[Rfam]
RNA sequence: CAAGCCCUUACUGUAGUGCGCGUGCCGCAAACCACAUAGGCACCGUGCAUGAAACUGGAGGGCAAGAUUA
Numbered sequence: 001c002a003a004g005c006c007c008u009u010a011c012u013g014u015a016g017u018g019c020g021c022g023u024g025c026c027g028c029a030a031a032c033c034a035c036a037u038a039g040g041c042a043c044c045g046u047g048c049a050u051g052a053a054a055c056u057g058g059a060g061g062g063c064a065a066g067a068u069u070a
Stems, first nucleotide, its partner, number of pairs: 004063006016050007023042004
Description: Rfam assigns this 70-nucleotide RNA from Leptomonas pyrrhocoris to the family "Trypanosomatid snoRNA TB11Cs2H1". On this family, see Liang et al., RNA 2005: "A genome-wide analysis of C/D and H/ACA-like small nucleolar RNAs in Trypanosoma brucei reveals a trypanosome-specific pattern of rRNA modification". Taxonomically the source falls in Leptomonas (Eukaryota, Euglenozoa, Trypanosomatidae, Leishmaniinae). It scores 87 bits against the family's covariance model.